The record is an 87-nucleotide RNA sequence from Roseateles saccharophilus, which matches "c-di-GMP-I riboswitch aptamer" in Rfam. A search with the family's covariance model found it, with a score of 56 bits.
RNA sequence: UCAACCCGAGUGCAUACCCGCUGAAAGGCGGGGACGCAAAGCUUCCGGCCUAAAGCGCAGCAGCGCCACGGCAGGAGGGCCGCCGCC
Numbered sequence: 001u002c003a004a005c006c007c008g009a010g011u012g013c014a015u016a017c018c019c020g021c022u023g024a025a026a027g028g029c030g031g032g033g034a035c036g037c038a039a040a041g042c043u044u045c046c047g048g049c050c051u052a053a054a055g056c057g058c059a060g061c062a063g064c065g066c067c068a069c070g071g072c073a074g075g076a077g078g079g080c081c082g083c084c085g086c087c
Stems, first nucleotide, its partner, number of pairs: 012037002017032006041080003045077001048072003055066004
Lineage of the source: Bacteria > Pseudomonadati > Pseudomonadota > Sphaerotilaceae > Roseateles. Rfam describes the family as follows. GEMM was predicted in a large-scale screen for bacterial structured RNA regulatory elements. The base pairs follow the family's consensus structure, which is taken from published work. Gene Ontology term of the family: cyclic-di-GMP binding.